Rfam assigns this 129-nucleotide sequence from Diachasma alloeum to the family "Small Cajal body specific RNA 8". A search with the family's covariance model found it, with a score of 69 bits. About the family: scaRNAs are a specific class of small nuclear RNAs which localise to the Cajal bodies and guide the modification of RNA polymerase II transcribed spliceosomal RNAs U1, U2, U4, U5 and U12. U92 belong to the H/ACA box class of guide RNAs as it has the predicted hairpin-hinge-hairpin-tail structure, conserved H/ACA-box motifs and is found associated with GAR1. The organism belongs to Diachasma, within Eukaryota.
[Rfam]
RNA sequence: UGGAAGGAUCGAUACAUGAAGGUGUACAAGUUUAUAACUUUCGUCACAAUUUCUUCCUAGAGAAAAAUGUUUUCUGAUGACUGUAAAUUCUGAAGUUAUAAUUUACGGACAGAUACGGAGCAAACAUUC
Numbered sequence: 001u002g003g004a005a006g007g008a009u010c011g012a013u014a015c016a017u018g019a020a021g022g023u024g025u026a027c028a029a030g031u032u033u034a035u036a037a038c039u040u041u042c043g044u045c046a047c048a049a050u051u052u053c054u055u056c057c058u059a060g061a062g063a064a065a066a067a068u069g070u071u072u073u074c075u076g077a078u079g080a081c082u083g084u085a086a087a088u089u090c091u092g093a094a095g096u097u098a099u100a101a102u103u104u105a106c107g108g109a110c111a112g113a114u115a116c117g118g119a120g121c122a123a124a125c126a127u128u129c
Base pairs, nucleotide, nucleotide: 002057003056004055005054006053007052016044017043018042019041022038023037068122069121070120071119072118073117081108082107083106086103087102088101089100
Dot-bracket structure: .((((((........((((..((.............))..)))).......))))))..........((((((.......(((..((((..........))))..)))........)))))).......
Pairs were carried over by alignment from the consensus structure, which is taken from published work.